[Rfam]
Shown here is a 98-nucleotide sequence from Gulo gulo, a member of the family "mir-544 microRNA precursor family". The family has 16 seed sequences and 10,750 matches in Rfam 15.1. On this family, see Chiang et al., Genes Dev 2010: "Mammalian microRNAs: experimental evaluation of novel and previously annotated genes". Its family is annotated with miRNA-mediated post-transcriptional gene silencing and RISC complex in the Gene Ontology.
RNA sequence: ACCACCUGGGAAUCUUGUUAAAAUGCAACUUCUGAGUCAGUAGGUCUGUGAUGGGGCCUGAGAUGGUGCAUUUAUAGCAAGUUCCCAGCUGAAGCCAA
Numbered sequence: 001a002c003c004a005c006c007u008g009g010g011a012a013u014c015u016u017g018u019u020a021a022a023a024u025g026c027a028a029c030u031u032c033u034g035a036g037u038c039a040g041u042a043g044g045u046c047u048g049u050g051a052u053g054g055g056g057c058c059u060g061a062g063a064u065g066g067u068g069c070a071u072u073u074a075u076a077g078c079a080a081g082u083u084c085c086c087a088g089c090u091g092a093a094g095c096c097a098a
Stems, first nucleotide, its partner, number of pairs: 003091002009085003014081007021073003025069003029065001031063003